Rfam assigns this 60-nucleotide RNA sequence from Flaviflexus salsibiostraticola to the family "msiK RNA".
NCBI's taxonomy places the organism under Bacteria, Actinomycetota, Actinomycetes, Actinomycetaceae, Flaviflexus.
The base pairs follow the family's consensus structure, which is taken from published work.
The family's RNA type in Rfam is cis-regulatory element.
RNA sequence: GGCACCGGCUUCUUCACUACGGAUCGUCCGGCACGUACCUGCCGGUGAAGGGACCAUUCA
Numbered sequence: 001g002g003c004a005c006c007g008g009c010u011u012c013u014u015c016a017c018u019a020c021g022g023a024u025c026g027u028c029c030g031g032c033a034c035g036u037a038c039c040u041g042c043c044g045g046u047g048a049a050g051g052g053a054c055c056a057u058u059c060a
Stems, first nucleotide, its partner, number of pairs: 010052007028045006